[Rfam]
RNA sequence: GUAAAGAUUGUGAUAAGGAAGAGUAUUAAAAUUAAUUCUUUAAGAGAGCUGAGAAAAAGGUGGAAACUCAGUAGAAUUUUUUUAAGAAGGCAGCCUUUGAAUUGCUUAUUGAGAACUAAGAUUUUUUUUAAUGUAGAUAACGCCGUGAUCCUCACGUUACAGAGGAAGAAUAUAAAUUUUGUAUUCUGAUACUUGAGAGAGCAGAAUAAUUUUCUGCUUAUUAGGGUGGUACCGCGGAUUUAACUUCGUCCCUUAU
Numbered sequence: 001g002u003a004a005a006g007a008u009u010g011u012g013a014u015a016a017g018g019a020a021g022a023g024u025a026u027u028a029a030a031a032u033u034a035a036u037u038c039u040u041u042a043a044g045a046g047a048g049c050u051g052a053g054a055a056a057a058a059g060g061u062g063g064a065a066a067c068u069c070a071g072u073a074g075a076a077u078u079u080u081u082u083u084a085a086g087a088a089g090g091c092a093g094c095c096u097u098u099g100a101a102u103u104g105c106u107u108a109u110u111g112a113g114a115a116c117u118a119a120g121a122u123u124u125u126u127u128u129u130a131a132u133g134u135a136g137a138u139a140a141c142g143c144c145g146u147g148a149u150c151c152u153c154a155c156g157u158u159a160c161a162g163a164g165g166a167a168g169a170a171u172a173u174a175a176a177u178u179u180u181g182u183a184u185u186c187u188g189a190u191a192c193u194u195g196a197g198a199g200a201g202c203a204g205a206a207u208a209a210u211u212u213u214c215u216g217c218u219u220a221u222u223a224g225g226g227u228g229g230u231a232c233c234g235c236g237g238a239u240u241u242a243a244c245u246u247c248g249u250c251c252c253u254u255a256u
Stems, first nucleotide, its partner, number of pairs: 007102002015097004026085006037075003048072006105142001106140005144156003200218007223253004234249005
This 256-nucleotide RNA from Clostridium sp. DSM 8431 belongs to the Rfam family "T-box leader". Rfam describes the family as follows. Uncharged tRNA acts as the effector for transcription antitermination of genes in the T-box leader family. The family has 48 seed sequences and 19,395 matches in Rfam 15.1. Pairs were carried over by alignment from the consensus structure, which is taken from published work. The organism belongs to Clostridium, within Bacteria.